A member of the RNA family "7SK RNA" from Jaculus jaculus, 314 nucleotides long. The family's RNA type in Rfam is non-coding RNA gene. Rfam's curators write: 7SK was discovered as an abundant small nuclear RNA in the mid-70s but a possible function has only recently been suggested. Two independent studies have found that 7SK RNA binds the CDK9/cyclin T complex (known as elongation factor P-TEFb). Taxonomically the source falls in Jaculus (Eukaryota, Vertebrata, Euteleostomi, Dipodidae). On this family, see Blencowe, Curr Biol 2002: "Transcription: surprising role for an elusive small nuclear RNA".

RNA sequence: GGAUGUGAGGGCGAUCUGGCUGCAACAUCUGUCACCCCAUUGAUCACCAGGGUUGAUUCGGCUGAUCUGGCUGGCUAGGCGGGUGUCCCCUUCCUCCCUCAUCGCUCCAUGUGCGUCCCUCCCGAAGAGAACGACCUUCCCUGAAUAGAGGAGGACCGGUCUUCAGUCAAGGGUAUACGAGUAGCUGUGCUCCCCUCCUAGAACCUCCGAACCAGCUCGCAAGGUCCAUUUGUAGGAGAACAUAAGGUAGUCAAGCUUCCAAGACUCCAGACACAUCCAAAUGAGGCGCUACAUGUGGCAGUCUGCCUUUGUUU
Numbered sequence: 001g002g003a004u005g006u007g008a009g010g011g012c013g014a015u016c017u018g019g020c021u022g023c024a025a026c027a028u029c030u031g032u033c034a035c036c037c038c039a040u041u042g043a044u045c046a047c048c049a050g051g052g053u054u055g056a057u058u059c060g061g062c063u064g065a066u067c068u069g070g071c072u073g074g075c076u077a078g079g080c081g082g083g084u085g086u087c088c089c090c091u092u093c094c095u096c097c098c099u100c101a102u103c104g105c106u107c108c109a110u111g112u113g114c115g116u117c118c119c120u121c122c123c124g125a126a127g128a129g130a131a132c133g134a135c136c137u138u139c140c141c142u143g144a145a146u147a148g149a150g151g152a153g154g155a156c157c158g159g160u161c162u163u164c165a166g167u168c169a170a171g172g173g174u175a176u177a178c179g180a181g182u183a184g185c186u187g188u189g190c191u192c193c194c195c196u197c198c199u200a201g202a203a204c205c206u207c208c209g210a211a212c213c214a215g216c217u218c219g220c221a222a223g224g225u226c227c228a229u230u231u232g233u234a235g236g237a238g239a240a241c242a243u244a245a246g247g248u249a250g251u252c253a254a255g256c257u258u259c260c261a262a263g264a265c266u267c268c269a270g271a272c273a274c275a276u277c278c279a280a281a282u283g284a285g286g287c288g289c290u291a292c293a294u295g296u297g298g299c300a301g302u303c304u305g306c307c308u309u310u311g312u313u314u
Base pairs, nucleotide, nucleotide: 001108002107003106005102006101007100008099009098010097011096013093014092018090019089025086026085027084028083029082030081031080032079033078035074036073037070038069039068042067043066044065045064047061048060116154117153118151119150120149121148122143124141129139131138184256185255186254190250191249193247194246196244205238206237207236208235211233212232214230215229279314280313281312283309284308285307286306287305288302289301290300292298